Source information:
The family of this 61-nucleotide sequence from Trypanosoma congolense is "Trypanosomatid snoRNA TB9Cs4H1". A reference for the family is Liang et al. (2005), "A genome-wide analysis of C/D and H/ACA-like small nucleolar RNAs in Trypanosoma brucei reveals a trypanosome-specific pattern of rRNA modification", RNA.
RNA sequence: UGAGGUCGCUGUGUAUCCUGCCGGCCUGCCGGUGCCGUAGCGGGGAAUGGAGCUGACCGAG
Numbered sequence: 001u002g003a004g005g006u007c008g009c010u011g012u013g014u015a016u017c018c019u020g021c022c023g024g025c026c027u028g029c030c031g032g033u034g035c036c037g038u039a040g041c042g043g044g045g046a047a048u049g050g051a052g053c054u055g056a057c058c059g060a061g
Base pairs, nucleotide, nucleotide: 004058005057006056007055008054016045017044018043019042020041022037023036024035025034